[Rfam]
The family of this 165-nucleotide RNA sequence from Otolemur garnettii is "Small nucleolar RNA SNORA29". From the family's description: ACA29 is a member of the H/ACA class of snoRNA that guide the sites of modification of uridines to pseudouridines. Clan: SNORA20 clan. The base pairs follow the family's consensus structure, which was predicted with PFOLD. By type it is an H/ACA-box small nucleolar RNA. NCBI's taxonomy places the organism under Eukaryota, Metazoa, Deuterostomia, Craniata, Otolemur. It scores 119 bits against the family's covariance model. A reference for the family is Huttenhofer et al. (2001), "RNomics: an experimental approach that identifies 201 candidates for novel, small, non-messenger RNAs in mouse", EMBO J.
RNA sequence: UUUCCCAUUUGACUACCACUUUUUCUCUUAAUAGUAGAUUUUAGUAGCUAUGCUUAUGGAAUAUAUUAAAAUUGCCAUGAUCUGAAGAGGGAGGUUUUCUUUUUUUUUUCUUUUUUUUUUUUUUUUGGUGGUCUCCUUCUAUAUGAAAUGGCUGAACAGAAAGUU
Numbered sequence: 001u002u003u004c005c006c007a008u009u010u011g012a013c014u015a016c017c018a019c020u021u022u023u024u025c026u027c028u029u030a031a032u033a034g035u036a037g038a039u040u041u042u043a044g045u046a047g048c049u050a051u052g053c054u055u056a057u058g059g060a061a062u063a064u065a066u067u068a069a070a071a072u073u074g075c076c077a078u079g080a081u082c083u084g085a086a087g088a089g090g091g092a093g094g095u096u097u098u099c100u101u102u103u104u105u106u107u108u109u110c111u112u113u114u115u116u117u118u119u120u121u122u123u124u125u126u127g128g129u130g131g132u133c134u135c136c137u138u139c140u141a142u143a144u145g146a147a148a149u150g151g152c153u154g155a156a157c158a159g160a161a162a163g164u165u
Base pairs, nucleotide, nucleotide: 005059006058007057016047018045019044074152075151076150077149092140093139094138